[Rfam]
RNA sequence: UCCGGAGGAAGCUCACCACCGAGGUCACGCACUGGGUGCGCGUCACCCGCGGCCCCGCCUCGGGGAAGGUCUGAGGGAAGGGCCGCCCGCGGCUCCAGCAGAGCCCCGCCCGCGAUGGGUGGGUGAGCCACCAGCAAGGUGGGGCGCCGCGGUAGCGCUGGUGUGGGCAGGAGAAGCCGAGUGAGGUUUCACCCCCCUUUAUAGGGAGGGGACCCUCCCGGUGGAUGCUCGUGGCCACGCGGUGCUUUGAGACAGACUCACGGCCGGCGAUCGCUGAGUCCAAUGGGUGAGGUGGGGCACGGUCCUACAACCCAAUUCAGACUACUCUCCCCCGGA
Numbered sequence: 001u002c003c004g005g006a007g008g009a010a011g012c013u014c015a016c017c018a019c020c021g022a023g024g025u026c027a028c029g030c031a032c033u034g035g036g037u038g039c040g041c042g043u044c045a046c047c048c049g050c051g052g053c054c055c056c057g058c059c060u061c062g063g064g065g066a067a068g069g070u071c072u073g074a075g076g077g078a079a080g081g082g083c084c085g086c087c088c089g090c091g092g093c094u095c096c097a098g099c100a101g102a103g104c105c106c107c108g109c110c111c112g113c114g115a116u117g118g119g120u121g122g123g124u125g126a127g128c129c130a131c132c133a134g135c136a137a138g139g140u141g142g143g144g145c146g147c148c149g150c151g152g153u154a155g156c157g158c159u160g161g162u163g164u165g166g167g168c169a170g171g172a173g174a175a176g177c178c179g180a181g182u183g184a185g186g187u188u189u190c191a192c193c194c195c196c197c198u199u200u201a202u203a204g205g206g207a208g209g210g211g212a213c214c215c216u217c218c219c220g221g222u223g224g225a226u227g228c229u230c231g232u233g234g235c236c237a238c239g240c241g242g243u244g245c246u247u248u249g250a251g252a253c254a255g256a257c258u259c260a261c262g263g264c265c266g267g268c269g270a271u272c273g274c275u276g277a278g279u280c281c282a283a284u285g286g287g288u289g290a291g292g293u294g295g296g297g298c299a300c301g302g303u304c305c306u307a308c309a310a311c312c313c314a315a316u317u318c319a320g321a322c323u324a325c326u327c328u329c330c331c332c333c334g335g336a
Base pairs, nucleotide, nucleotide: 001336002335003334004333007330008329009328012291013290014289015288016287017286020062021061022060023059024058034048035047036046037045038044071320072319073318074317075316081265082264083263084262091105092104093103094102095101106122107121108120109119110118111117123261124260125259126258127257129255143246144245145244146243147242148241149240150239151238292308293307294306295305296304297303298302
RNA: Nuclear RNase P
Organism: Podargus strigoides